RNA sequence: UUAAACUAAAUAAGAAUCAUCCAUAUAAUCCCGAUAAUAUGGUUCGGGAGUCUCUACGAGGAAACCGUAAAUUUUCUGUCUAUGGGUGAGCGAUGGUGUUUU
Numbered sequence: 001u002u003a004a005a006c007u008a009a010a011u012a013a014g015a016a017u018c019a020u021c022c023a024u025a026u027a028a029u030c031c032c033g034a035u036a037a038u039a040u041g042g043u044u045c046g047g048g049a050g051u052c053u054c055u056a057c058g059a060g061g062a063a064a065c066c067g068u069a070a071a072u073u074u075u076c077u078g079u080c081u082a083u084g085g086g087u088g089a090g091c092g093a094u095g096g097u098g099u100u101u102u
Base pairs, nucleotide, nucleotide: 018088019087020086021085022084023083024082025081029049030048031047032046033045034044059077060076061075062074063073064072
About this RNA: Purine riboswitch aptamer: a 102-nucleotide RNA sequence from Clostridium sp. USBA 49. From the family's description: Riboswitches are metabolite binding domains within certain messenger RNAs that serve as precision sensors for their corresponding targets. The match comes from Rfam's covariance-model search (83 bits). Rfam links the family to the GO term purine nucleobase biosynthetic process. Lineage of the source: Bacteria > Bacillati > Eubacteriales > Clostridiaceae > Clostridium.